RNA sequence: GCCCUGUGGUUUCUGGAGACCAUUGCUCAGAUAAGGCUUUCCAGUGGAUUCAGUGGGCCAGAGGGAUCCUGUGAUUUAUGCCAGGCAGCUCUUUCUCUUCGGCAGUUGCCAUAGCCCAGUCACUGGUACAUGG
Numbered sequence: 001g002c003c004c005u006g007u008g009g010u011u012u013c014u015g016g017a018g019a020c021c022a023u024u025g026c027u028c029a030g031a032u033a034a035g036g037c038u039u040u041c042c043a044g045u046g047g048a049u050u051c052a053g054u055g056g057g058c059c060a061g062a063g064g065g066a067u068c069c070u071g072u073g074a075u076u077u078a079u080g081c082c083a084g085g086c087a088g089c090u091c092u093u094u095c096u097c098u099u100c101g102g103c104a105g106u107u108g109c110c111a112u113a114g115c116c117c118a119g120u121c122a123c124u125g126g127u128a129c130a131u132g133g
Stems, first nucleotide, its partner, number of pairs: 001058004008049001010047002013044005020036002023033001069125001071123006080115002084110002087107004092102002
RNA: Small nucleolar RNA SNORA84